[Rfam]
RNA sequence: GUCGGGAGGGCGGCUAAUACAACACCCUUCGGGGAAAUACGCCCGCCGGCUACGUGCGGUUUCUAACCUCCCGACAUCCCGUC
Number, nucleotide and partner (000 for none) at each position: 001g075002u074003c073004g072005g071006g070007a069008g068009g067010g000011c000012g043013g042014c041015u039016a038017a000018u000019a000020c000021a000022a000023c000024a000025c034026c033027c032028u000029u000030c000031g000032g027033g026034g025035a000036a000037a000038u016039a015040c000041g014042c013043c012044c000045g060046c059047c058048g057049g000050c000051u000052a000053c000054g000055u000056g000057c048058g047059g046060u045061u000062u000063c000064u000065a000066a000067c009068c008069u007070c006071c005072c004073g003074a002075c001076a000077u000078c000079c000080c000081g000082u000083c000
RNA: sRNA-Xcc1
Organism: Xanthomonas oryzae